[Rfam]
RNA sequence: AGAUGAACCACGGGAGCCCGGCGAGCGGGCUGAGAGGGGACCCGGUCGCGGUCCCGACCGUCGAACCUGAUCCGGGUCAUGCCGGCGCAGGGAGUGAGGUGGAAGUUCCAU
Numbered sequence: 001a002g003a004u005g006a007a008c009c010a011c012g013g014g015a016g017c018c019c020g021g022c023g024a025g026c027g028g029g030c031u032g033a034g035a036g037g038g039g040a041c042c043c044g045g046u047c048g049c050g051g052u053c054c055c056g057a058c059c060g061u062c063g064a065a066c067c068u069g070a071u072c073c074g075g076g077u078c079a080u081g082c083c084g085g086c087g088c089a090g091g092g093a094g095u096g097a098g099g100u101g102g103a104a105g106u107u108c109c110a111u
Base pairs, nucleotide, nucleotide: 009096010095011060012059013058016030017029018028019027020026037055038054039053040052041051066091067090068089069088072085073084074083075082
RNA: TPP riboswitch aptamer (THI element)